[Rfam]
RNA sequence: ACACAAGGAAGGAGGUGGUCCGCGAAAUUGAUAGCUUCAUGGACAUGUGCGAAAUUGAUAGCUUCAUGGACAUGUGAGGUGGCUGGGCGCUAGCUGCGCCGGCUUUCGAAGAGCCGGCGUUAUUUGUGCGCUGGCGAAUUCCCCGUAGUCACCCGGCCCCCGAGCUUCGGGUUGUUGUCCGACCAGGAACACGGCUCGGGGGCCGCUCCAU
Numbered sequence: 001a002c003a004c005a006a007g008g009a010a011g012g013a014g015g016u017g018g019u020c021c022g023c024g025a026a027a028u029u030g031a032u033a034g035c036u037u038c039a040u041g042g043a044c045a046u047g048u049g050c051g052a053a054a055u056u057g058a059u060a061g062c063u064u065c066a067u068g069g070a071c072a073u074g075u076g077a078g079g080u081g082g083c084u085g086g087g088c089g090c091u092a093g094c095u096g097c098g099c100c101g102g103c104u105u106u107c108g109a110a111g112a113g114c115c116g117g118c119g120u121u122a123u124u125u126g127u128g129c130g131c132u133g134g135c136g137a138a139u140u141c142c143c144c145g146u147a148g149u150c151a152c153c154c155g156g157c158c159c160c161c162g163a164g165c166u167u168c169g170g171g172u173u174g175u176u177g178u179c180c181g182a183c184c185a186g187g188a189a190c191a192c193g194g195c196u197c198g199g200g201g202g203c204c205g206c207u208c209c210a211u
Stems, first nucleotide, its partner, number of pairs: 016085004088136007096129004154205013167187002170184003
Rfam assigns this 211-nucleotide RNA from Mycobacterium avium to the family "Actinobacteria sRNA Ms_IGR-5". Taxonomically the source falls in Mycobacterium avium subsp. paratuberculosis (Bacteria, Bacillati, Mycobacterium avium complex (MAC), Mycobacterium avium). The sequence is in the family's curated seed alignment. The family's RNA type in Rfam is small RNA.